The family of this 107-nucleotide RNA from Gracilibacillus halophilus is "TPP riboswitch aptamer (THI element)". Pairs were carried over by alignment from the consensus structure, which is taken from published work. Gene Ontology term of the family: thiamine pyrophosphate binding.
RNA sequence: AUCAACCACUAGGGGUGUCUUGUGAAGACUGAGAUUAAAGUGACACUUUAAGACCCUUGGAACCUGAUCUGGUUCAUACCAGCGUAGGGAAGUGGUGGUCAUACUUA
Dot-bracket structure: .....(((((((((.((((((...)))))......(((((.....))))))..)))).....((((..((((......))))..))))..)))))............